[Rfam]
RNA sequence: GGCUGGUCCAAGUGCAGUGGUGUUUACAACUAAUUGAUCACAACCAGUUACAGAUUCCUUUCUUCCUCCUCCACUCCCAUGGUUCACUUGAGUAGCCUUAA
Numbered sequence: 001g002g003c004u005g006g007u008c009c010a011a012g013u014g015c016a017g018u019g020g021u022g023u024u025u026a027c028a029a030c031u032a033a034u035u036g037a038u039c040a041c042a043a044c045c046a047g048u049u050a051c052a053g054a055u056u057c058c059u060u061u062c063u064u065c066c067u068c069c070u071c072c073a074c075u076c077c078c079a080u081g082g083u084u085c086a087c088u089u090g091a092g093u094a095g096c097c098u099u100a101a
Base pairs, nucleotide, nucleotide: 001097002096003095004094005093007091008090010089011088014085017080018079019078020077022076028064029063032060033059

Shown here is a 101-nucleotide RNA sequence from Propithecus coquereli, a member of the family "Y RNA". A reference for the family is Teunissen et al. (2000), "Conserved features of Y RNAs: a comparison of experimentally derived secondary structures", Nucleic Acids Res. It is annotated as a non-coding RNA gene. The source organism's lineage runs through Eukaryota, Chordata, Boreoeutheria, Indriidae and Propithecus.